[Rfam]
RNA sequence: AGCACUGUGUGGUAUCUGCAGCCAGUUGGUUCAUCAGCUGGAUUGUUCAAAAGUCAGUGCUAGACAAACUCAACAUCUGGCAUUGUUGGUCUCCAUACAUGGUGUUUGGAGUCCUGGUUGAUUGUUGAAACAUUC
Numbered sequence: 001a002g003c004a005c006u007g008u009g010u011g012g013u014a015u016c017u018g019c020a021g022c023c024a025g026u027u028g029g030u031u032c033a034u035c036a037g038c039u040g041g042a043u044u045g046u047u048c049a050a051a052a053g054u055c056a057g058u059g060c061u062a063g064a065c066a067a068a069c070u071c072a073a074c075a076u077c078u079g080g081c082a083u084u085g086u087u088g089g090u091c092u093c094c095a096u097a098c099a100u101g102g103u104g105u106u107u108g109g110a111g112u113c114c115u116g117g118u119u120g121a122u123u124g125u126u127g128a129a130a131c132a133u134u135c
Stems, first nucleotide, its partner, number of pairs: 002060006014054002017051001018046004023041001024039005063126005069120001071117001073115001079106005
RNA: Small nucleolar RNA SNORA8